[Rfam]
RNA: Glycine riboswitch aptamer
RNA sequence: AGACGGAUGGCGGGAGAGUCCCGUUCACACCAUGGACGGGCGCCGUAGGAGCAAUUCCUCCCCAGGAAACUCUCAGGCCCCCGUACCGCCAUCACGAG
Dot-bracket structure: .....((((((((......((((((.........)))))).((((...(((...((.......))....))).).))).......)))))))).....
Numbered sequence: 001a002g003a004c005g006g007a008u009g010g011c012g013g014g015a016g017a018g019u020c021c022c023g024u025u026c027a028c029a030c031c032a033u034g035g036a037c038g039g040g041c042g043c044c045g046u047a048g049g050a051g052c053a054a055u056u057c058c059u060c061c062c063c064a065g066g067a068a069a070c071u072c073u074c075a076g077g078c079c080c081c082c083g084u085a086c087c088g089c090c091a092u093c094a095c096g097a098g
Stems, first nucleotide, its partner, number of pairs: 006093008020040006042078003045074001049072003055065002